[Rfam]
RNA sequence: AAAAUAAAGGAGUGAUAACCAAUUUCUUGUUCUAUCAAGAGUAUUGGUAUUGUUCUUUUAU
Numbered sequence: 001a002a003a004a005u006a007a008a009g010g011a012g013u014g015a016u017a018a019c020c021a022a023u024u025u026c027u028u029g030u031u032c033u034a035u036c037a038a039g040a041g042u043a044u045u046g047g048u049a050u051u052g053u054u055c056u057u058u059u060a061u
Stems, first nucleotide, its partner, number of pairs: 006059012021044001024041006
The record is a 61-nucleotide sequence from Hibiscus syriacus, which matches "Plastid-psbA-4 3UTR RNA" in Rfam. A search with the family's covariance model found it, with a score of 65 bits. Plastid psbA-4 is a non-coding RNA (ncRNA) present in plastids. It was identified in inverted repeat sequences in the 3 prime untranslate region (3UTR) of photosystem II quinone-binding protein (psbA). NCBI's taxonomy places the organism under Eukaryota, Streptophyta, Magnoliopsida, Malvales, Hibiscus. The family's consensus secondary structure was predicted with LocARNA.